The record is a 442-nucleotide part of an RNA from Ureaplasma urealyticum, which matches "Bacterial large subunit ribosomal RNA" in Rfam.
Taxonomically the source falls in Ureaplasma urealyticum serovar 11 (Bacteria, Bacillati, Mycoplasmoidales, Ureaplasma).

RNA sequence: CUCGUCGAAAUAUUUUUAGGAAUAGCGUUAGAUUAUUGGGAAUAUGGGGGUAAAGCACUGAAUCUAUGAUGGCGCCACCUCGGUGUACUGAAUAGAAUCAAACUCUGAAUACCAUAUUACCUAUUCUAGCAGUCAGACAGUGGGGGAUAAGCUUCAUUGUCGCGAGGGAAACAGCCCAGAUCAUUAACUAAGGUCCCUAAUAUAUGCUAAGUGGAAAACGAUGUUGAGUUUCAUAAACAGCAAGGAUGUUGGCUUAGAAGCAGCCACCGUUUAAAGAGUGCGUAACAGCUCACUUGUCGAGAGACUCUGCGCGGAAGAUGUAACGGGGCUAAGCAUAUAACCGAAGUUAUGGGUUACAUAUUGUAUAUGUAGCGGUAGACGAGUGUUGUAUAUGGGGCGAAGGUAGACUGUGAAGACUACUGGACUUUAUACAAGUAAGAAU
Numbered sequence: 001c002u003c004g005u006c007g008a009a010a011u012a013u014u015u016u017u018a019g020g021a022a023u024a025g026c027g028u029u030a031g032a033u034u035a036u037u038g039g040g041a042a043u044a045u046g047g048g049g050g051u052a053a054a055g056c057a058c059u060g061a062a063u064c065u066a067u068g069a070u071g072g073c074g075c076c077a078c079c080u081c082g083g084u085g086u087a088c089u090g091a092a093u094a095g096a097a098u099c100a101a102a103c104u105c106u107g108a109a110u111a112c113c114a115u116a117u118u119a120c121c122u123a124u125u126c127u128a129g130c131a132g133u134c135a136g137a138c139a140g141u142g143g144g145g146g147a148u149a150a151g152c153u154u155c156a157u158u159g160u161c162g163c164g165a166g167g168g169a170a171a172c173a174g175c176c177c178a179g180a181u182c183a184u185u186a187a188c189u190a191a192g193g194u195c196c197c198u199a200a201u202a203u204a205u206g207c208u209a210a211g212u213g214g215a216a217a218a219c220g221a222u223g224u225u226g227a228g229u230u231u232c233a234u235a236a237a238c239a240g241c242a243a244g245g246a247u248g249u250u251g252g253c254u255u256a257g258a259a260g261c262a263g264c265c266a267c268c269g270u271u272u273a274a275a276g277a278g279u280g281c282g283u284a285a286c287a288g289c290u291c292a293c294u295u296g297u298c299g300a301g302a303g304a305c306u307c308u309g310c311g312c313g314g315a316a317g318a319u320g321u322a323a324c325g326g327g328g329c330u331a332a333g334c335a336u337a338u339a340a341c342c343g344a345a346g347u348u349a350u351g352g353g354u355u356a357c358a359u360a361u362u363g364u365a366u367a368u369g370u371a372g373c374g375g376u377a378g379a380c381g382a383g384u385g386u387u388g389u390a391u392a393u394g395g396g397g398c399g400a401a402g403g404u405a406g407a408c409u410g411u412g413a414a415g416a417c418u419a420c421u422g423g424a425c426u427u428u429a430u431a432c433a434a435g436u437a438a439g440a441a442u
Stems, first nucleotide, its partner, number of pairs: 001383006011024005026132001027130006036123001039120001041118007053106001054104002059100003063096004071088001072086005136161010166177003181352004186348003192342003201339007219313002223310002226307007240297005246270003251265003271275001276291001280289002353373008384437001386434007394426002402421005408415002